Rfam assigns this 67-nucleotide RNA sequence from Bombyx mori to the family "mir-2813 microRNA precursor family". NCBI's taxonomy places the organism under Eukaryota, Opisthokonta, Metazoa, Neolepidoptera, Bombyx.
RNA sequence: CAAAUUCUAGAUUAAGCCGUUGGAAAGACGUCACCAGUGACGAAAUCCUACGGUUUUUAGCAGUUUU
Dot-bracket structure: .((((((((((...((((((.(((....(((((....)))))...))).))))))))))).))))).
Numbered sequence: 001c002a003a004a005u006u007c008u009a010g011a012u013u014a015a016g017c018c019g020u021u022g023g024a025a026a027g028a029c030g031u032c033a034c035c036a037g038u039g040a041c042g043a044a045a046u047c048c049u050a051c052g053g054u055u056u057u058u059a060g061c062a063g064u065u066u067u
Stems, first nucleotide, its partner, number of pairs: 002066005007060005015055006022048003029042005